[Rfam]
RNA sequence: AACAACACAUUGAUGGAGACAGUACAAAAUCGCGCGCGUCCAGAAAAAGGUUCCUUGGCUGGAAGAACCUUCGCAGACCGGUUUUGGAAAGCUACUCCGGAGUGCAGCUAAUCCCUGCCGUCAAAGCCGCGUUAAGGCGUUUCGAGAGACAUGGGCUGGAAAGCCUGUGUAACUAGGGUGGUACCGCGAAUGUUGAGCCUUCGUCCCUUGC
Dot-bracket structure: ......((......((((......((((((.....(((........((((((.............)))))))))......))))))........))))...)).(((.......))).(((.......))).................(((((((........)))))))....((((.......(((((.........)))))))))...
Rfam assigns this 211-nucleotide RNA from Planococcus salinus to the family "T-box leader". The organism belongs to Planococcus, within Bacteria. The family's RNA type in Rfam is cis-regulatory leader. A reference for the family is Grundy et al. (1994), "Interaction between the acceptor end of tRNA and the T box stimulates antitermination in the Bacillus subtilis tyrS gene: a new role for the discriminator base", J Bacteriol. The base pairs follow the family's consensus structure, which is taken from published work.